[Rfam]
Nucleotides: 113
Base pairs, nucleotide, nucleotide: 011026012025013024014023015022016021028050029049030048034044035043036042037041083100084099085098086097087096088095089094
Number, partner (000 for none) and nucleotide at each position: 001000u002000a003000u004000u005000u006000a007000a008000a009000g010000u011026a012025g013024a014023a015022g016021c017000a018000c019000c020000c021016g022015c023014u024013u025012c026011u027000c028050a029049c030048c031000u032000u033000u034044c035043a036042c037041c038000a039000c040000a041037g042036g043035u044034g045000u046000c047000a048030g049029g050028u051000u052000u053000c054000u055000a056000a057000g058000u059000g060000a061000a062000u063000g064000u065000u066000a067000a068000u069000u070000a071000a072000g073000a074000u075000u076000g077000u078000g079000c080000a081000g082000a083100a084099g085098c086097g087096g088095g089094u090000u091000u092000a093000u094089a095088c096087c097086c098085g099084c100083u101000u102000u103000a104000u105000u106000u107000u108000u109000u110000g111000u112000a113000a
Rfam assigns this 113-nucleotide sequence from Thermoanaerobacterium thermosaccharolyticum to the family "Ribosomal protein L20 leader". Gene Ontology term of the family: regulation of gene expression. The organism belongs to Thermoanaerobacterium thermosaccharolyticum, within Bacteria. The family's RNA type in Rfam is cis-regulatory leader.